[Rfam]
Overview: The record is a 119-nucleotide RNA from Coptotermes formosanus, which matches "U5 spliceosomal RNA" in Rfam. Rfam's curators write: U5 RNA is a component of both types of known spliceosome. The precise function of this molecule is unknown, though it is known that the 5' loop is required for splice site selection and p220 binding, and that both the 3' stem-loop and the Sm site are important for Sm protein binding and cap methylation. The organism belongs to Coptotermes, within Eukaryota.
RNA sequence: UUACUCUGGUUUCCCUUCAAUACGCAUAAAUCUUUCGCCUUUUACUAAAGAUUUCCGUGGAGGGGAACAUAUGAUGAGUCUUUAACCAAUUUUUUGUAGUGCCCGGCGUAAGCUGGGCC
Number, nucleotide and partner (000 for none) at each position: 001u000002u000003a079004c078005u077006c076007u000008g000009g068010u067011u066012u065013c064014c063015c062016u061017u060018c059019a058020a000021u000022a000023c000024g000025c000026a000027u000028a054029a053030a052031u051032c050033u049034u048035u047036c000037g000038c000039c000040u000041u000042u000043u000044a000045c000046u000047a035048a034049a033050g032051a031052u030053u029054u028055c000056c000057g000058u019059g018060g017061a016062g015063g014064g013065g012066a011067a010068c009069a000070u000071a000072u000073g000074a000075u000076g006077a005078g004079u003080c000081u000082u000083u000084a000085a000086c000087c000088a000089a000090u000091u000092u000093u000094u000095u000096g000097u000098a000099g000100u000101g118102c117103c116104c115105g114106g113107c000108g000109u000110a000111a000112g000113c106114u105115g104116g103117g102118c101119c000